The record is an 86-nucleotide sequence from Proteiniborus ethanoligenes, which matches "Group II catalytic intron D1-D4-1" in Rfam. Rfam 15.1 lists 2,508 matches to the family in 1,144 species. NCBI's taxonomy places the organism under Bacteria, Bacillota, Clostridia, Eubacteriales, Proteiniborus. From the family's description: Group II introns are found in rRNA, tRNA and mRNA of organelles in fungi, plants and protists, and also in mRNA in bacteria.
[Rfam]
RNA sequence: UAACCCAUGCAGUGAUGUGUGGCUGAACUAUCAGAAGUCAGCAGAAGCCAUAGUACAAGGUUAGUCAUGAAUAACCUUGGAAGGGC
Number, nucleotide and partner (000 for none) at each position: 001u025002a024003a000004c000005c022006c021007a020008u019009g018010c017011a016012g000013u000014g000015a000016u011017g010018u009019g008020u007021g006022g005023c000024u002025g001026a000027a000028c000029u000030a000031u000032c000033a000034g000035a000036a000037g000038u045039c044040a000041g000042c000043a000044g039045a038046a000047g086048c085049c084050a000051u000052a000053g000054u000055a000056c079057a078058a077059g076060g075061u074062u073063a072064g000065u000066c000067a000068u000069g000070a000071a000072u063073a062074a061075c060076c059077u058078u057079g056080g000081a000082a000083g000084g049085g048086c047